[Rfam]
RNA: Ribosomal protein L20 leader
RNA sequence: GAGGAAAAGAAGAAGCACCCGCUUCUCACCUGAUUAACGCAAAGAUUGCAGUUGGCAGGUUCUACGUGAGCAAACUAUUAUUAAUUUCUGUUCGCAAAGUGUGGGUGUUUUGACAUCUGCACUUUUUUUAUUGA
Numbered sequence: 001g002a003g004g005a006a007a008a009g010a011a012g013a014a015g016c017a018c019c020c021g022c023u024u025c026u027c028a029c030c031u032g033a034u035u036a037a038c039g040c041a042a043a044g045a046u047u048g049c050a051g052u053u054g055g056c057a058g059g060u061u062c063u064a065c066g067u068g069a070g071c072a073a074a075c076u077a078u079u080a081u082u083a084a085u086u087u088c089u090g091u092u093c094g095c096a097a098a099g100u101g102u103g104g105g106u107g108u109u110u111u112g113a114c115a116u117c118u119g120c121a122c123u124u125u126u127u128u129u130a131u132u133g134a
Stems, first nucleotide, its partner, number of pairs: 011026006028060003036053003039049002100121009